Nucleotides: 104
Stems, first nucleotide, its partner, number of pairs: 018090004022085004030048005058079007
Number, partner (000 for none) and nucleotide at each position: 001000g002000u003000a004000a005000c006000u007000u008000a009000a010000g011000u012000g013000u014000a015000u016000u017000u018090a019089a020088c021087u022085c023084g024083u025082a026000u027000a028000u029000u030048c031047u032046c033045a034044g035000u036000a037000a038000u039000a040000u041000g042000g043000u044034c045033u046032g047031a048030g049000c050000g051000u052000u053000u054000c055000u056000a057000c058079c059078u060077g061076g062075u063074u064073c065000c066000c067000g068000u069000c070000a071000a072000a073064g074063a075062a076061c077060c078059g079058g080000a081000c082025u083024a084023c085022g086000u087021a088020g089019u090018u091000a092000a093000a094000g095000u096000c097000u098000a099000u100000g101000u102000u103000a104000a
Notes
The family of this 104-nucleotide RNA from Oceanobacillus oncorhynchi is "Purine riboswitch aptamer". The source organism's lineage runs through Bacteria, Bacillati, Bacillota, Caryophanales and Oceanobacillus.